[Rfam]
RNA sequence: AAGUUAGUGAUGAUUAUAAAAAUAAUUUCUCAUUCUGACUUACUUAAUUUAGACAUGACAAACGUCUUAUUAUAACCAUAGAAUAUGAGCUUUAC
Numbered sequence: 001a002a003g004u005u006a007g008u009g010a011u012g013a014u015u016a017u018a019a020a021a022a023u024a025a026u027u028u029c030u031c032a033u034u035c036u037g038a039c040u041u042a043c044u045u046a047a048u049u050u051a052g053a054c055a056u057g058a059c060a061a062a063c064g065u066c067u068u069a070u071u072a073u074a075a076c077c078a079u080a081g082a083a084u085a086u087g088a089g090c091u092u093u094a095c
Stems, first nucleotide, its partner, number of pairs: 003095002006091002
Dot-bracket structure: ..((.((..................................................................................))..))

This 95-nucleotide RNA from Theobroma umbraticum belongs to the Rfam family "Small nucleolar RNA snoR8a". Rfam 15.1 lists 956 matches to the family in 245 species. A reference for the family is Brown et al. (2001), "Multiple snoRNA gene clusters from Arabidopsis", RNA. The family's consensus secondary structure was predicted with WAR. It scores 49 bits against the family's covariance model.